[Rfam]
RNA sequence: UAUGCGGACCGGGCCCCUCUGGCGGGCGGCGAAAGCCUCCCGUGAUGUCGGACCGCAUCG
Numbered sequence: 001u002a003u004g005c006g007g008a009c010c011g012g013g014c015c016c017c018u019c020u021g022g023c024g025g026g027c028g029g030c031g032a033a034a035g036c037c038u039c040c041c042g043u044g045a046u047g048u049c050g051g052a053c054c055g056c057a058u059c060g
Stems, first nucleotide, its partner, number of pairs: 006054002009051004022043005028037003
Dot-bracket structure: .....((.((((.........(((((.(((....))).)))))....)))).))......
RNA: terC RNA